[Rfam]
RNA sequence: CUCCGCGAAAUCUAUUUAGGUAGAGCGUUGGACGAAUACUCUCGGGGGUAGAGCACUGGAUGGGCUAGGGGUCCCCACAGGAUUACCAAACCUAACCAAACUCCGAAUACCGAGAAGUACUAUCCAGCAGACACACGGCGGGUGCUAACGUCCGUCGUGAAAAGGGAAACAACCCUGACCGCCAGCUAAGGCCCCUAAUUCGUGGCUAAGUGGGAAAGGAUGUGAGGAUCCCAAAACAACCAGGAUGUUGGCUUAGAAGCAGCCAUCAUUUAAAGAAAGCGUAACAGCUCACUGGUCUAGUCAAGGGUUCUUGCGCCGACAAUGUAACGGGGCUCAAGCCACGAGCCGAAGCUGCGGGUGCACGCAAGUGCGCGGUAGCGGAGCGUUCCGUAAGCCUGUGAAGCGUCAGCCGUGAGGCGGCGUGGAGGUAUCGGAAGUGAGAAU
Numbered sequence: 001c002u003c004c005g006c007g008a009a010a011u012c013u014a015u016u017u018a019g020g021u022a023g024a025g026c027g028u029u030g031g032a033c034g035a036a037u038a039c040u041c042u043c044g045g046g047g048g049u050a051g052a053g054c055a056c057u058g059g060a061u062g063g064g065c066u067a068g069g070g071g072u073c074c075c076c077a078c079a080g081g082a083u084u085a086c087c088a089a090a091c092c093u094a095a096c097c098a099a100a101c102u103c104c105g106a107a108u109a110c111c112g113a114g115a116a117g118u119a120c121u122a123u124c125c126a127g128c129a130g131a132c133a134c135a136c137g138g139c140g141g142g143u144g145c146u147a148a149c150g151u152c153c154g155u156c157g158u159g160a161a162a163a164g165g166g167a168a169a170c171a172a173c174c175c176u177g178a179c180c181g182c183c184a185g186c187u188a189a190g191g192c193c194c195c196u197a198a199u200u201c202g203u204g205g206c207u208a209a210g211u212g213g214g215a216a217a218g219g220a221u222g223u224g225a226g227g228a229u230c231c232c233a234a235a236a237c238a239a240c241c242a243g244g245a246u247g248u249u250g251g252c253u254u255a256g257a258a259g260c261a262g263c264c265a266u267c268a269u270u271u272a273a274a275g276a277a278a279g280c281g282u283a284a285c286a287g288c289u290c291a292c293u294g295g296u297c298u299a300g301u302c303a304a305g306g307g308u309u310c311u312u313g314c315g316c317c318g319a320c321a322a323u324g325u326a327a328c329g330g331g332g333c334u335c336a337a338g339c340c341a342c343g344a345g346c347c348g349a350a351g352c353u354g355c356g357g358g359u360g361c362a363c364g365c366a367a368g369u370g371c372g373c374g375g376u377a378g379c380g381g382a383g384c385g386u387u388c389c390g391u392a393a394g395c396c397u398g399u400g401a402a403g404c405g406u407c408a409g410c411c412g413u414g415a416g417g418c419g420g421c422g423u424g425g426a427g428g429u430a431u432c433g434g435a436a437g438u439g440a441g442a443a444u
Stems, first nucleotide, its partner, number of pairs: 001383006011024005026130001027128006036121001040115006051104001052102002057098003061094004068087002070084005134159010164175003179357004184353003190347003199344001201343006218317002222314010239296005245269003250264003270274001275290001279288002358373006384439001386436005394429003403423005409418003
The family of this 444-nucleotide part of an RNA from Pseudoxanthobacter soli is "Bacterial large subunit ribosomal RNA". NCBI's taxonomy places the organism under Bacteria, Alphaproteobacteria, Hyphomicrobiales, Segnochrobactraceae, Pseudoxanthobacter soli. The match comes from Rfam's covariance-model search (2710 bits).